[Rfam]
Nucleotides: 141
Stems, first nucleotide, its partner, number of pairs: 003062006014053002019048003023042006085135005098130001100128001104126002108122003112118001
Number, partner (000 for none) and nucleotide at each position: 001000a002000c003062c004061c005060c006059c007058u008057g009000g010000c011000a012000a013000u014053g015052g016000g017000c018000a019048a020047g021046g022000a023042g024041a025040c026039a027038c028037c029000a030000g031000a032000u033000u034000g035000g036000u037028g038027g039026u040025g041024u042023c043000g044000c045000u046021c047020u048019u049000a050000u051000a052015u053014c054000c055000a056000u057008c058007a059006g060005g061004g062003g063000c064000a065000a066000a067000g068000c069000a070000g071000g072000c073000a074000c075000a076000c077000a078000a079000u080000c081000c082000u083000u084000a085135g086134u087133u088132c089131a090000u091000u092000c093000u094000a095000g096000c097000u098130g099000a100128u101000g102000c103000c104126u105125g106000u107000g108122u109121u110120g111000u112118u113000g114000g115000c116000c117000a118112g119000c120110u121109g122108a123000u124000u125105c126104a127000u128100g129000c130098c131089u132088g133087g134086g135085c136000a137000c138000a139000u140000a141000a
The record is a 141-nucleotide RNA from Myotis myotis, which matches "Small nucleolar RNA SNORA48" in Rfam. The family's RNA type in Rfam is H/ACA-box small nucleolar RNA. Gene Ontology terms of the family: nucleolus and RNA processing. The snoRNA ACA 48 has been identified to guide pseudouridylation of the residue U3797 in the 28S rRNA subunit.